[Rfam]
RNA sequence: AUGAACACUUGUUGUAAGUCGCUUUGGAUAAAAGAGUCUGCUAAAUGACUGGAA
Numbered sequence: 001a002u003g004a005a006c007a008c009u010u011g012u013u014g015u016a017a018g019u020c021g022c023u024u025u026g027g028a029u030a031a032a033a034g035a036g037u038c039u040g041c042u043a044a045a046u047g048a049c050u051g052g053a054a
Stems, first nucleotide, its partner, number of pairs: 013043001014041003020036001022034004
Notes:
A member of the RNA family "UnaL2 LINE 3' element" from Muraenolepis orangiensis, 54 nucleotides long. From the family's description: The eel long interspersed element (LINE) UnaL2 and its partner short interspersed element (SINE) share a conserved 3' tail containing a stem-loop that is critical for their retrotransposition. It scores 56 bits against the family's covariance model.